[Rfam]
RNA sequence: AAGUGUUACAGCUCUUUUAGAAUUUUGUCUAGCAGGUUUGUGGUUUAUCCCGGAGAGACUGUU
Numbered sequence: 001a002a003g004u005g006u007u008a009c010a011g012c013u014c015u016u017u018u019a020g021a022a023u024u025u026u027g028u029c030u031a032g033c034a035g036g037u038u039u040g041u042g043g044u045u046u047a048u049c050c051c052g053g054a055g056a057g058a059c060u061g062u063u
Base pairs, nucleotide, nucleotide: 035060036059037058038057039056041052042051043050
U7 small nuclear RNA: a 63-nucleotide sequence from Neotoma lepida. Rfam 15.1 lists 10,439 matches to the family in 569 species. Pairs were carried over by alignment from the consensus structure, which was predicted with PFOLD.